[Rfam]
RNA sequence: CCUGCCAGAGAGGGCUUUUGGUUUAUCCUAUGUGCUGUGGCUUAUGUACAAUUCGAAAGACAUAUGCCACGGCGGAUAGGAGCAAUCAUUAGCCACAAAGCCAACUAUCCGUGGGA
Numbered sequence: 001c002c003u004g005c006c007a008g009a010g011a012g013g014g015c016u017u018u019u020g021g022u023u024u025a026u027c028c029u030a031u032g033u034g035c036u037g038u039g040g041c042u043u044a045u046g047u048a049c050a051a052u053u054c055g056a057a058a059g060a061c062a063u064a065u066g067c068c069a070c071g072g073c074g075g076a077u078a079g080g081a082g083c084a085a086u087c088a089u090u091a092g093c094c095a096c097a098a099a100g101c102c103a104a105c106u107a108u109c110c111g112u113g114g115g116a
Stems, first nucleotide, its partner, number of pairs: 001115005009106002013102006019095005026081006033074009043064004049059001